Bacillus-plasmid RNA: a 67-nucleotide RNA from Bacillus cereus. Pairs were carried over by alignment from the consensus structure, which is taken from published work. By type it is a small RNA.

Nucleotides: 067
Stems, first nucleotide, its partner, number of pairs: 001058009
Number, partner (000 for none) and nucleotide at each position: 001058u002057g003056u004055g005054u006053c007052a008051a009050c010000g011000g012000u013000a014000c015000c016000g017000g018000a019000c020000c021000g022000a023000a024000c025000c026000c027000g028000a029000a030000a031000g032000g033000g034000u035000g036000c037000g038000g039000g040000a041000g042000g043000a044000u045000a046000a047000g048000g049000a050009g051008u052007u053006g054005a055004c056003a057002c058001a059000c060000u061000u062000a063000c064000u065000a066000u067000g

Taxonomically the source falls in Bacillus cereus (Bacteria, Bacillati, Bacillota, Bacillaceae).